SAM riboswitch aptamer (S box leader): a 106-nucleotide RNA from Cytobacillus solani. On this family, see Grundy and Henkin, Mol Microbiol 1998: "The S box regulon: a new global transcription termination control system for methionine and cysteine biosynthesis genes in gram-positive bacteria".
[Rfam]
RNA sequence: UUCUUAUCGAGAGAGGCAGAGGGACUGGCCCGAUGAAGCCUCGGCAGCGGAUUCCAUUUUGGAAUCUAUGCCAAAUCCAGCAAGCGAAAAGCUUGAGAGAUAAGAA
Numbered sequence: 001u002u003c004u005u006a007u008c009g010a011g012a013g014a015g016g017c018a019g020a021g022g023g024a025c026u027g028g029c030c031c032g033a034u035g036a037a038g039c040c041u042c043g044g045c046a047g048c049g050g051a052u053u054c055c056a057u058u059u060u061g062g063a064a065u066c067u068a069u070g071c072c073a074a075a076u077c078c079a080g081c082a083a084g085c086g087a088a089a090a091g092c093u094u095g096a097g098a099g100a101u102a103a104g105a106a
Base pairs, nucleotide, nucleotide: 001106002105003104004103005102006101007100008099013042014041015040016039017038021031022030023029025080026079027078028077043072044071045070046069049067051065052064053063054062076098081095082094083093084092085091